RNA sequence: GGGAAUCUAACUAUCUAAUUAAAAUAUAGUAUUAUGAUAGCUAGAAAGUGGUGUUAACGUAAUGUGAUUUCUGCUUAGUACUCUAAAUAUUAAAGUGAAGUAAUUUAACUAAGUGUGAGUAAAUAGUAGGAGUAACUAUAACUUAAAUAGUUAGCUAGAGGGCUUAGAGAUAGGUUCCUCUAUUAAGAGGGUUAUUAGAAUAAGAGUGAAAAGCUACCUAUUAGUAAGGCGUCCCUUAGGGCGCCUUAUAACACUAUUAAAUUAGUAGGAAGUCUCUAAGGCUUAAUAACACUACAGCCUAAUAAAAGAAGGGUGUGUACUAAGGAUAGCACCUCUAGGGAUAGUAAUAGUUAUUAAGAUAUAUAGGUAACCUAUAGCUAAGCCUUAAGUCUCCCUUUUAGGGGGGAUAUAAGUGCAGUUUAACGACUAAACAGCAGUAAGCUUAUUAGAGGGAAACCUCCCUAGUAAGUCUAAGAUAUAGUCUAUAGCAUACCUAAAAUAGUAUUACCUACCUAAAUGCUCUUAAGGUAGCUAAAUAUCUUAUUAUCUAAUUAGUGAUAUAUAUAAAUAGAUUAAUAAGAUUCCUAUUA
Number, nucleotide and partner (000 for none) at each position: 001g586002g585003g584004a583005a582006u581007c580008u578009a577010a000011c000012u026013a025014u024015c000016u000017a000018a000019u000020u000021a000022a000023a000024a014025u013026a012027u000028a000029g065030u064031a063032u062033u061034a060035u059036g058037a000038u000039a000040g052041c051042u050043a049044g000045a000046a000047a000048g000049u043050g042051g041052u040053g000054u000055u000056a000057a000058c036059g035060u034061a033062a032063u031064g030065u029066g000067a000068u000069u572070u571071c000072u000073g127074c126075u125076u000077a000078g124079u123080a120081c119082u118083c117084u000085a116086a000087a000088u115089a114090u113091u000092a000093a000094a000095g000096u107097g106098a105099a104100g000101u000102a000103a000104u099105u098106u097107a096108a000109c000110u000111a000112a000113g090114u089115g088116u085117g083118a082119g081120u080121a000122a000123a079124u078125a075126g074127u073128a000129g521130g520131a000132g518133u517134a000135a000136c000137u000138a000139u000140a000141a000142c000143u000144u000145a000146a000147a000148u000149a000150g000151u000152u000153a000154g000155c000156u000157a000158g000159a000160g000161g000162g000163c000164u000165u000166a000167g000168a000169g000170a000171u000172a000173g000174g000175u000176u000177c000178c000179u000180c000181u000182a000183u000184u000185a000186a000187g000188a000189g000190g000191g000192u000193u000194a000195u000196u000197a000198g000199a000200a000201u000202a000203a000204g000205a000206g000207u000208g000209a000210a000211a000212a000213g000214c000215u000216a000217c000218c000219u000220a000221u000222u000223a000224g000225u000226a000227a000228g000229g000230c000231g000232u000233c000234c000235c000236u000237u000238a000239g000240g000241g000242c000243g000244c000245c000246u000247u000248a000249u000250a000251a000252c000253a000254c000255u000256a000257u000258u000259a000260a000261a000262u000263u000264a000265g000266u000267a000268g000269g000270a000271a000272g000273u000274c000275u000276c000277u000278a000279a000280g000281g000282c000283u000284u000285a000286a000287u000288a000289a000290c000291a000292c000293u000294a000295c000296a000297g000298c000299c000300u000301a000302a000303u000304a000305a000306a000307a000308g000309a000310a000311g000312g000313g000314u000315g000316u000317g000318u000319a000320c000321u000322a000323a000324g000325g000326a000327u000328a000329g000330c000331a000332c000333c000334u000335c000336u000337a000338g000339g000340g000341a000342u000343a000344g000345u000346a000347a000348u000349a000350g000351u000352u000353a000354u000355u000356a000357a000358g000359a000360u000361a000362u000363a000364u000365a000366g000367g000368u000369a000370a000371c000372c000373u000374a000375u000376a000377g000378c000379u000380a000381a000382g000383c000384c000385u000386u000387a000388a000389g000390u000391c000392u000393c000394c000395c000396u000397u000398u000399u000400a000401g000402g000403g000404g000405g000406g000407a000408u000409a000410u000411a000412a000413g000414u000415g000416c000417a000418g000419u000420u000421u000422a000423a000424c000425g000426a000427c000428u000429a000430a000431a000432c000433a000434g000435c000436a000437g000438u000439a000440a000441g000442c000443u000444u000445a000446u000447u000448a000449g000450a000451g000452g000453g000454a000455a000456a000457c000458c000459u000460c000461c000462c000463u000464a000465g000466u000467a000468a000469g000470u000471c000472u000473a000474a000475g000476a000477u000478a000479u000480a000481g000482u000483c000484u000485a000486u000487a000488g000489c000490a000491u000492a000493c000494c000495u000496a000497a000498a000499a000500u000501a000502g000503u000504a000505u000506u000507a000508c000509c000510u000511a000512c000513c000514u000515a000516a000517a133518u132519g000520c130521u129522c000523u527524u000525a000526a000527g523528g000529u000530a000531g000532c000533u000534a000535a000536a000537u000538a000539u000540c000541u000542u000543a559544u558545u557546a556547u555548c000549u000550a000551a000552u000553u000554a000555g547556u546557g545558a544559u543560a000561u000562a000563u000564a000565u000566a000567a000568a000569u000570a000571g070572a069573u000574u000575a000576a000577u009578a008579a000580g007581a006582u005583u004584c003585c002586u001587a000588u000589u000590a000
This 590-nucleotide part of an RNA from Colletotrichum gloeosporioides belongs to the Rfam family "Eukaryotic large subunit ribosomal RNA". The match comes from Rfam's covariance-model search (2085 bits).